[Rfam]
RNA sequence: CUCUUAUCAAGAGUGGUGGAGGGAUGUGCCCUAAGAAGCCCAGCAACCGUCGUUUAACGAAAUGGUGCUAAUUCACAUAAAGUAGACAAUACUUUAAGAGAUAAGAG
Numbered sequence: 001c002u003c004u005u006a007u008c009a010a011g012a013g014u015g016g017u018g019g020a021g022g023g024a025u026g027u028g029c030c031c032u033a034a035g036a037a038g039c040c041c042a043g044c045a046a047c048c049g050u051c052g053u054u055u056a057a058c059g060a061a062a063u064g065g066u067g068c069u070a071a072u073u074c075a076c077a078u079a080a081a082g083u084a085g086a087c088a089a090u091a092c093u094u095u096a097a098g099a100g101a102u103a104a105g106a107g
Base pairs, nucleotide, nucleotide: 001107002106003105004104005103006102007101008100013041015040016039017038021031022030023029025077026076027075028074042069043068044067045066047065048064050060051059052058073099078096079095080094081093082092083091